RNA sequence: GAACAACACAACGGGUGCCCACUGUGGCUGAGAUAAUACCGUUGGAACUUGAACAAGGUUAAUACCUGCGAAAGAAUGUGUUUGUUCUAUUUG
Numbered sequence: 001g002a003a004c005a006a007c008a009c010a011a012c013g014g015g016u017g018c019c020c021a022c023u024g025u026g027g028c029u030g031a032g033a034u035a036a037u038a039c040c041g042u043u044g045g046a047a048c049u050u051g052a053a054c055a056a057g058g059u060u061a062a063u064a065c066c067u068g069c070g071a072a073a074g075a076a077u078g079u080g081u082u083u084g085u086u087c088u089a090u091u092u093g
Base pairs, nucleotide, nucleotide: 006081007080008079009078010077011042012041013040014039016036017028018027019026048074049073050072054068056067057066058065

Source information: This 93-nucleotide sequence belongs to the Rfam family "TPP riboswitch aptamer (THI element)". Pairs were carried over by alignment from the consensus structure, which is taken from published work.